[Rfam]
RNA sequence: ACUGAAACCUUUGUUUCAGUUCACUCCUCACACCACACCCCGCCCGGGCCUUUGGCUUGGGCGGUU
Numbered sequence: 001a002c003u004g005a006a007a008c009c010u011u012u013g014u015u016u017c018a019g020u021u022c023a024c025u026c027c028u029c030a031c032a033c034c035a036c037a038c039c040c041c042g043c044c045c046g047g048g049c050c051u052u053u054g055g056c057u058u059g060g061g062c063g064g065u066u
Base pairs, nucleotide, nucleotide: 001020002019003018004017005016006015007014008013041063042062043061044060045059046058047057048056049055
Annotation: The record is a 66-nucleotide RNA from Nodosilinea sp. LEGE 07088, which matches "Cyanobacterial functional RNA 1" in Rfam. Rfam classes the family as a small RNA. A reference for the family is Voss et al. (2007), "A motif-based search in bacterial genomes identifies the ortholog of the small RNA Yfr1 in all lineages of cyanobacteria", BMC Genomics. Taxonomically the source falls in Nodosilinea (Bacteria, Bacillati, Cyanophyceae, Nodosilineaceae).